[Rfam]
Shown here is an 89-nucleotide RNA from Helianthus annuus, a member of the family "Small nucleolar RNA R11/Z151".
Gene Ontology terms of the family: nucleolus and RNA processing.
For this family Rfam cites "Identification of 66 box C/D snoRNAs in Arabidopsis thaliana: extensive gene duplications generated multiple isoforms predicting new ribosomal RNA 2'-O-methylation sites" (Barneche et al., J Mol Biol, 2001).
Lineage of the source: Eukaryota > Euphyllophyta > Mesangiospermae > Pentapetalae > Helianthus.
By type it is a C/D-box small nucleolar RNA.
RNA sequence: GGGCUAAUGAUGAGAAAUACAAUUAUCUUAGUGGAUUUCAGUGAGAUUACUUGUAAUCAAUGAUCUGAUUGUUACACACACUGAAGCUC
Number, nucleotide and partner (000 for none) at each position: 001g089002g088003g087004c086005u085006a000007a000008u000009g000010a000011u000012g000013a000014g000015a000016a000017a000018u000019a000020c000021a000022a000023u000024u000025a000026u000027c000028u000029u000030a000031g000032u000033g000034g000035a000036u000037u000038u000039c000040a000041g000042u000043g000044a000045g000046a000047u000048u000049a000050c000051u000052u000053g000054u000055a000056a000057u000058c000059a000060a000061u000062g000063a000064u000065c000066u000067g000068a000069u000070u000071g000072u000073u000074a000075c000076a000077c000078a000079c000080a000081c000082u000083g000084a000085a005086g004087c003088u002089c001